[Rfam]
RNA: U4 spliceosomal RNA
RNA sequence: AGCUUUGCACAGUGGUAGUAUCGUAGCCAGUGAGGUUUAUCUGAGGAGCAAUUCUUGCUAAUUGAAAACAUUUCCCAAUAUCCUGCCAUAACGCCUUGAAAUGUAGUCGGCAUUGGCAAUUUUUGGCAGUCUCUAUGGGA
Numbered sequence: 001a002g003c004u005u006u007g008c009a010c011a012g013u014g015g016u017a018g019u020a021u022c023g024u025a026g027c028c029a030g031u032g033a034g035g036u037u038u039a040u041c042u043g044a045g046g047a048g049c050a051a052u053u054c055u056u057g058c059u060a061a062u063u064g065a066a067a068a069c070a071u072u073u074c075c076c077a078a079u080a081u082c083c084u085g086c087c088a089u090a091a092c093g094c095c096u097u098g099a100a101a102u103g104u105a106g107u108c109g110g111c112a113u114u115g116g117c118a119a120u121u122u123u124u125g126g127c128a129g130u131c132u133c134u135a136u137g138g139g140a
Stems, first nucleotide, its partner, number of pairs: 020052002023049002027046002034042002085117003088113002092109002095106002130140004